[Rfam]
RNA: Alphaproteobacteria transfer-messenger RNA
Organism: Roseivivax sp. THAF197b
RNA sequence: CCGCUUGAAACACGGGCGCACGGCCUCCAUAUUACGAGUGUCUCGCAAGAGACUAUGGACAUAAACGCGCUCGUAAUAAGCGGAUCGGACCCGGGGGCGGUACCCGGCGACUCCACCAAUUAACCCGCGUUGGGGGUUCAUGGGGUCGAAACAGGAUCGACGAACGUCUAAAGGGGUUUGCUUUGUCCCGGUGAGGUACCACCGUUAUCGGUCCGUAAAGCAUAGUUGCCAACGUCAAUCAUGCUCCGGUUGCAGUUGCCGCGUAAGCGGUAACGAGACCGAAACUUAAGCCCUAACCUCUAGCCAGGUUAGGCGGGGUUCGCAGGCACCUGGCAACAGAAGCCUGCAUU
Dot-bracket structure: .......................................(((((....)))))...(((((.....((((((........((..(((...(((((.......)))))(((((((...........................)))))))............))).)).......))))..))..)))))((((..[[.[[[)))).....]]]]].....................................................................................................[[[[..((((((]]]]..........))))))...